[Rfam]
RNA sequence: AGAGAUCUUCGGGGUAGGGUGCAAUUCCCGACCGGCGGUGAACAUUUUUUUACAAGUGAAAAAAUGGUAGCCCGCGACUCAUUUUUCGUUUUAUAGAGGAAUGACUGAUCUGGUGAGAAUCCAGAGCCGACGGUAAAGUCCGGAUGGGAGAAGAUCAAC
Numbered sequence: 001a002g003a004g005a006u007c008u009u010c011g012g013g014g015u016a017g018g019g020u021g022c023a024a025u026u027c028c029c030g031a032c033c034g035g036c037g038g039u040g041a042a043c044a045u046u047u048u049u050u051u052a053c054a055a056g057u058g059a060a061a062a063a064a065u066g067g068u069a070g071c072c073c074g075c076g077a078c079u080c081a082u083u084u085u086u087c088g089u090u091u092u093a094u095a096g097a098g099g100a101a102u103g104a105c106u107g108a109u110c111u112g113g114u115g116a117g118a119a120u121c122c123a124g125a126g127c128c129g130a131c132g133g134u135a136a137a138g139u140c141c142g143g144a145u146g147g148g149a150g151a152a153g154a155u156c157a158a159c
Stems, first nucleotide, its partner, number of pairs: 004156007017029003031139002033129002035075004070127002079104005109125005131142003
A member of the RNA family "FMN riboswitch aptamer (RFN element)" from Paenibacillus nuruki, 159 nucleotides long. Its family is annotated with FMN binding in the Gene Ontology. Taxonomically the source falls in Paenibacillus (Bacteria, Bacillati, Bacillota, Caryophanales).